[Rfam]
RNA sequence: AUUAUUACCCUAACUCGAGCAUUAACUUGAUAGUUUAUAACAGUAAGUGCUUCUUGUUGGGGCAAUUUUA
Numbered sequence: 001a002u003u004a005u006u007a008c009c010c011u012a013a014c015u016c017g018a019g020c021a022u023u024a025a026c027u028u029g030a031u032a033g034u035u036u037a038u039a040a041c042a043g044u045a046a047g048u049g050c051u052u053c054u055u056g057u058u059g060g061g062g063c064a065a066u067u068u069u070a
Base pairs, nucleotide, nucleotide: 004066005065006064008062009061010060011059013057014056017053018051019050020049021048022047023046025044026043027042
Dot-bracket structure: ...(((.((((.((..(((((((.(((..............))).)))))).)..)).)))).)))....